[Rfam]
RNA sequence: GAAGUUAGCCGGACAGUCGCCGCCUGUUAUGCAGGGGGAGGAAAGUCCGGGCUCCACAGGGCAGGGUGCCAGAUAACGUCUGGGCGGCGUGAGCCGACGGCCAGUGCAACAGAAAGAUACCGCUUCCACACAAGGUGGUGUUCGUUAAUUCGGGCAGUGCCUGGAAGUAAGGGUGAAAUGGUGUGGUAAGAGCGCACCGCGCGAGUGGUAACAUGAGCGGCAAGGUAAACCCCACUCGGAGCAAGACCAAAUAGGUGUCCAGAUGGCGCGGCCCGCGUUGGACACGGGUAGGUUGCUUGAGGCGUGCAGCGAUGUGCGCCCUAGAUGAAUGACUGUCCUCGACAGAACCCGGCUUACAGGCUAACUUCUUUA
Numbered sequence: 001g002a003a004g005u006u007a008g009c010c011g012g013a014c015a016g017u018c019g020c021c022g023c024c025u026g027u028u029a030u031g032c033a034g035g036g037g038g039a040g041g042a043a044a045g046u047c048c049g050g051g052c053u054c055c056a057c058a059g060g061g062c063a064g065g066g067u068g069c070c071a072g073a074u075a076a077c078g079u080c081u082g083g084g085c086g087g088c089g090u091g092a093g094c095c096g097a098c099g100g101c102c103a104g105u106g107c108a109a110c111a112g113a114a115a116g117a118u119a120c121c122g123c124u125u126c127c128a129c130a131c132a133a134g135g136u137g138g139u140g141u142u143c144g145u146u147a148a149u150u151c152g153g154g155c156a157g158u159g160c161c162u163g164g165a166a167g168u169a170a171g172g173g174u175g176a177a178a179u180g181g182u183g184u185g186g187u188a189a190g191a192g193c194g195c196a197c198c199g200c201g202c203g204a205g206u207g208g209u210a211a212c213a214u215g216a217g218c219g220g221c222a223a224g225g226u227a228a229a230c231c232c233c234a235c236u237c238g239g240a241g242c243a244a245g246a247c248c249a250a251a252u253a254g255g256u257g258u259c260c261a262g263a264u265g266g267c268g269c270g271g272c273c274c275g276c277g278u279u280g281g282a283c284a285c286g287g288g289u290a291g292g293u294u295g296c297u298u299g300a301g302g303c304g305u306g307c308a309g310c311g312a313u314g315u316g317c318g319c320c321c322u323a324g325a326u327g328a329a330u331g332a333c334u335g336u337c338c339u340c341g342a343c344a345g346a347a348c349c350c351g352g353c354u355u356a357c358a359g360g361c362u363a364a365c366u367u368c369u370u371u372a
Stems, first nucleotide, its partner, number of pairs: 001368010011357001012337007020038002023035005043355003047352005052241004059274004064237005069083005084098001085096004099232002104230002106226002120172002122168007180198006199221001200219003205214003245294004255285006265279005301320008

Source information: Rfam assigns this 372-nucleotide sequence from Arenicella chitinivorans to the family "Bacterial RNase P class A". NCBI's taxonomy places the organism under Bacteria, Pseudomonadota, Gammaproteobacteria, Arenicellaceae, Arenicella. Pairs were carried over by alignment from the consensus structure, which is taken from published work.